The record is a 58-nucleotide sequence from Rhodococcus sp. 1168, which matches "msiK RNA" in Rfam.

[Rfam]
RNA sequence: CGUCGAUACCCCACACUCGGAUCGUCCGGCACGUUCCUGCCGGUGGAGGGAUUUCACA
Dot-bracket structure: ........(((..((..........((((((......))))))))..)))........
Rfam 15.1 lists 1,374 matches to the family in 1,364 species.
Rfam classes the family as a cis-regulatory element.
The family's consensus secondary structure is taken from published work.